Xanthomonadaceae sRNA sX13: a 118-nucleotide RNA from Xylella fastidiosa. The family's consensus secondary structure was predicted with CMfinder. Taxonomically the source falls in Xylella fastidiosa (Bacteria, Pseudomonadati, Gammaproteobacteria, Lysobacterales).
[Rfam]
RNA sequence: AAUGCUUGCCUGUAGGAUCUCUCCUAAUCCCCUGGAGAAGAUCGUUGGAGCGGGGAUUCAUCCCCAAUCCCCGCUUCUGGCCUCGCCGACCUAAUCCCCUGGUCAGCGAGGCUUUUUA
Numbered sequence: 001a002a003u004g005c006u007u008g009c010c011u012g013u014a015g016g017a018u019c020u021c022u023c024c025u026a027a028u029c030c031c032c033u034g035g036a037g038a039a040g041a042u043c044g045u046u047g048g049a050g051c052g053g054g055g056a057u058u059c060a061u062c063c064c065c066a067a068u069c070c071c072c073g074c075u076u077c078u079g080g081c082c083u084c085g086c087c088g089a090c091c092u093a094a095u096c097c098c099c100u101g102g103u104c105a106g107c108g109a110g111g112c113u114u115u116u117u118a
Base pairs, nucleotide, nucleotide: 006012016043017042018041019040020039021037022036023035024034047077048076049075050074051073052072053071054070055069056068058067079113080112081111082110083109084108085107086106088104089103090102091101